[Rfam]
RNA sequence: UUGCUGUGAUGACUUUACAUUGUGGUUUCCAUCACUGAACGUGCAGUAGUGAGGACACUCAUUUCCUUGGCUGUGUCUGAGCGA
Dot-bracket structure: ((((............................................................................))))

Annotation:
The record is an 84-nucleotide sequence from Xenopus tropicalis, which matches "Small nucleolar RNA SNORD53/SNORD92" in Rfam. The source organism's lineage runs through Eukaryota, Eumetazoa, Euteleostomi, Batrachia and Silurana. Rfam 15.1 lists 2,250 matches to the family in 671 species. Rfam classes the family as a C/D-box small nucleolar RNA. The literature on the family includes a 1996 paper in Cell by Kiss-Laszlo et al., "Site-specific ribose methylation of preribosomal RNA: a novel function for small nucleolar RNAs".